[Rfam]
The family of this 99-nucleotide RNA sequence is "Bacterial small signal recognition particle RNA". It scores 57 bits against the family's covariance model. Pairs were carried over by alignment from the consensus structure, which is taken from published work. Rfam describes the family as follows. The signal recognition particle (SRP) is a universally conserved ribonucleoprotein involved in the co-translational targeting of proteins to membranes.

RNA sequence: GCCCGGGCCCGAUGCACGGGUGGCCUGUGAACCUGGUCAGGGCUUGACCGCAGCAGCCAUAAGCAGCCGUCGCCCGGUGCCGUUGGUGUCCUGGGCGUC
Numbered sequence: 001g002c003c004c005g006g007g008c009c010c011g012a013u014g015c016a017c018g019g020g021u022g023g024c025c026u027g028u029g030a031a032c033c034u035g036g037u038c039a040g041g042g043c044u045u046g047a048c049c050g051c052a053g054c055a056g057c058c059a060u061a062a063g064c065a066g067c068c069g070u071c072g073c074c075c076g077g078u079g080c081c082g083u084u085g086g087u088g089u090c091c092u093g094g095g096c097g098u099c
Stems, first nucleotide, its partner, number of pairs: 004093004009086006015077001017076006023068001025066004034059004042051002